[Rfam]
RNA sequence: CAGCGAUGCUCUGGAAAGAGCCACUGGUGCUAGACGCCGAGUGGCCGCCGAAGGGGUAACCUCGUGCCGACAGGCAUGGGCCAAGCUCUCAGGUUUCCGUGACAGAGGGGGCGCC
Numbered sequence: 001c002a003g004c005g006a007u008g009c010u011c012u013g014g015a016a017a018g019a020g021c022c023a024c025u026g027g028u029g030c031u032a033g034a035c036g037c038c039g040a041g042u043g044g045c046c047g048c049c050g051a052a053g054g055g056g057u058a059a060c061c062u063c064g065u066g067c068c069g070a071c072a073g074g075c076a077u078g079g080g081c082c083a084a085g086c087u088c089u090c091a092g093g094u095u096u097c098c099g100u101g102a103c104a105g106a107g108g109g110g111g112c113g114c115c
Stems, first nucleotide, its partner, number of pairs: 007109001009107005020045006047094003050090002054088003061080007

About this RNA:
Rfam assigns this 115-nucleotide RNA from Novosphingobium umbonatum to the family "Glycine riboswitch aptamer". Taxonomically the source falls in Novosphingobium (Bacteria, Pseudomonadota, Alphaproteobacteria, Sphingomonadales). The family is grouped with related families in Rfam's "Glycine riboswitch clan". A search with the family's covariance model found it, with a score of 43 bits. This family represents the bacterial glycine riboswitch. Glycine riboswitches usually consist of two metabolite-binding aptamers domains with similar structures in tandem. Gene Ontology term of the family: glycine biosynthetic process.